The record is a 53-nucleotide RNA sequence, which matches "Mu-gpT-DE RNA" in Rfam.
The family's consensus secondary structure is taken from published work.
[Rfam]
RNA sequence: CCCUGACAGACUCAUUGGGAGUCUGACACUAGCCAAGACAGGAGAUCUAAAUG
Numbered sequence: 001c002c003c004u005g006a007c008a009g010a011c012u013c014a015u016u017g018g019g020a021g022u023c024u025g026a027c028a029c030u031a032g033c034c035a036a037g038a039c040a041g042g043a044g045a046u047c048u049a050a051a052u053g
Base pairs, nucleotide, nucleotide: 002042003041004040005039007025008024009023010022011021